Rfam assigns this 105-nucleotide RNA sequence from Ornithinimicrobium humiphilum to the family "TPP riboswitch aptamer (THI element)". The base pairs follow the family's consensus structure, which is taken from published work.

RNA sequence: GACCAACGACAGGGGAGCGCUCCGGCGCUGAGAGUGCGGCUCGACCGCAGACCCUCCGAACCUGCUCCGGCUAGCACCGGCGAAGGAAGUCGCGCAUGACACUGC
Numbered sequence: 001g002a003c004c005a006a007c008g009a010c011a012g013g014g015g016a017g018c019g020c021u022c023c024g025g026c027g028c029u030g031a032g033a034g035u036g037c038g039g040c041u042c043g044a045c046c047g048c049a050g051a052c053c054c055u056c057c058g059a060a061c062c063u064g065c066u067c068c069g070g071c072u073a074g075c076a077c078c079g080g081c082g083a084a085g086g087a088a089g090u091c092g093c094g095c096a097u098g099a100c101a102c103u104g105c
Stems, first nucleotide, its partner, number of pairs: 007092004011055004017028004035049005061086003067080004